Notes:
int-alpA RNA: a 66-nucleotide RNA sequence from Citromicrobium sp. RCC1897. By type it is a small RNA. From the family's description: Acidobacteria (1 example), Planctomycetes (1 example), Proteobacteria.
RNA sequence: GGCGCGGCUAGGGUAGCUCCCGAACGGCGGCACCGCACCGCCUGCCGCGUCGCCUUCUUGAUGCGG
Numbered sequence: 001g002g003c004g005c006g007g008c009u010a011g012g013g014u015a016g017c018u019c020c021c022g023a024a025c026g027g028c029g030g031c032a033c034c035g036c037a038c039c040g041c042c043u044g045c046c047g048c049g050u051c052g053c054c055u056u057c058u059u060g061a062u063g064c065g066g
Stems, first nucleotide, its partner, number of pairs: 001051008011021003027041004033066005

Taxonomically the source falls in Citromicrobium (Bacteria, Pseudomonadati, Alphaproteobacteria, Sphingomonadaceae).